The record is a 116-nucleotide RNA sequence from Nocardia terpenica, which matches "Group II catalytic intron D1-D4-2" in Rfam. A search with the family's covariance model found it, with a score of 116 bits. Group II introns are found in rRNA, tRNA and mRNA of organelles in fungi, plants and protists, and also in mRNA in bacteria. Its family is annotated with Group II intron splicing in the Gene Ontology.

RNA sequence: GGAGGUAGGUCCUCCGGGAUCGCCCUGCAGGGGGAGGUCUCAAACCACCGCAAGCUGCUGCGGUCAAGAGUCGUGGUGGUGAGCGUUGCGGAAAAGGCGCACGUGAUGCGUCAGGU
Number, nucleotide and partner (000 for none) at each position: 001g015002g014003a013004g012005g011006u000007a000008g000009g000010u000011c005012c004013u003014c002015c001016g041017g040018g039019a038020u037021c036022g000023c034024c033025c032026u031027g000028c000029a000030g000031g026032g025033g024034g023035a000036g021037g020038u019039c018040u017041c016042a000043a000044a000045c000046c115047a000048c091049c090050g089051c088052a087053a086054g080055c079056u000057g077058c076059u075060g000061c073062g072063g071064u070065c000066a000067a000068g000069a000070g064071u063072c062073g061074u000075g059076g058077u057078g000079g055080u054081g000082a000083g000084c000085g000086u053087u052088g051089c050090g049091g048092a000093a000094a000095a000096g112097g111098c110099g109100c108101a107102c000103g000104u000105g000106a000107u101108g100109c099110g098111u097112c096113a000114g000115g046116u000